[Rfam]
RNA sequence: AGGAGGAACAACCACAGUGGCGGCAGCCAGCUCUCGCCCUGGAGUCAGCUCCUGCAGUAAUUACAGAGCUCUCAGUCUGCAGGGGCCUGGAUGCUCCGGGGGCAG
Numbered sequence: 001a002g003g004a005g006g007a008a009c010a011a012c013c014a015c016a017g018u019g020g021c022g023g024c025a026g027c028c029a030g031c032u033c034u035c036g037c038c039c040u041g042g043a044g045u046c047a048g049c050u051c052c053u054g055c056a057g058u059a060a061u062u063a064c065a066g067a068g069c070u071c072u073c074a075g076u077c078u079g080c081a082g083g084g085g086c087c088u089g090g091a092u093g094c095u096c097c098g099g100g101g102g103c104a105g
Stems, first nucleotide, its partner, number of pairs: 002097004007092001009089002012085002019077003023073001025072002029070006039057003
mir-8834 microRNA precursor family: a 105-nucleotide RNA sequence from Canis lupus. The base pairs follow the family's consensus structure, which was predicted with RNAalifold. NCBI's taxonomy places the organism under Eukaryota, Chordata, Carnivora, Canis, Canis lupus.